The record is a 57-nucleotide RNA sequence from Actinidia chinensis, which matches "Plastid-rps18 3UTR RNA" in Rfam. The base pairs follow the family's consensus structure, which was predicted with LocARNA. The family has 238 seed sequences and 1,462 matches in Rfam 15.1. About the family: Plastid rps18 is a non-coding RNA (ncRNA) present in plastids. It was identified as a short stem-loop motif in the 3 prime untranslate region (3UTR) of rps18 gene. The match comes from Rfam's covariance-model search (65 bits). The family's RNA type in Rfam is cis-regulatory element.
RNA sequence: UGCAAGUAUUUUAUAAUUAAGAAACAUUUGUCUCUUGUACAUAUUGUGUACUAGUCU
Numbered sequence: 001u002g003c004a005a006g007u008a009u010u011u012u013a014u015a016a017u018u019a020a021g022a023a024a025c026a027u028u029u030g031u032c033u034c035u036u037g038u039a040c041a042u043a044u045u046g047u048g049u050a051c052u053a054g055u056c057u
Base pairs, nucleotide, nucleotide: 018037019036020035021034022033024031025030